[Rfam]
The record is an 86-nucleotide RNA from Ricinus communis, which matches "Small nucleolar RNA SNORD25" in Rfam. The source organism's lineage runs through Eukaryota, Pentapetalae, fabids, Acalyphoideae and Ricinus. A search with the family's covariance model found it, with a score of 66 bits. The family's RNA type in Rfam is C/D-box small nucleolar RNA. The family's consensus secondary structure was predicted with PFOLD. Gene Ontology terms of the family: RNA processing and nucleolus. The family is grouped with related families in Rfam's "SNORD25 clan". A reference for the family is Tycowski et al. (1996), "A mammalian gene with introns instead of exons generating stable RNA products", Nature.

RNA sequence: UGGGGCAGUGAUGAGUCCUACAGACCUGUAAUGAUUUGCGGUGAUGAUCGCAAUUGUUCUAAGAACAUCUAAGUGACUGAGUUUCU
Number, nucleotide and partner (000 for none) at each position: 001u000002g085003g084004g083005g082006c081007a000008g000009u000010g000011a000012u000013g000014a000015g000016u000017c000018c000019u000020a000021c000022a000023g000024a000025c000026c000027u000028g000029u000030a000031a000032u000033g000034a000035u000036u000037u000038g000039c000040g000041g000042u000043g000044a000045u000046g000047a000048u000049c000050g000051c000052a000053a000054u000055u000056g000057u000058u000059c000060u000061a000062a000063g000064a000065a000066c000067a000068u000069c000070u000071a000072a000073g000074u000075g000076a000077c000078u000079g000080a000081g006082u005083u004084u003085c002086u000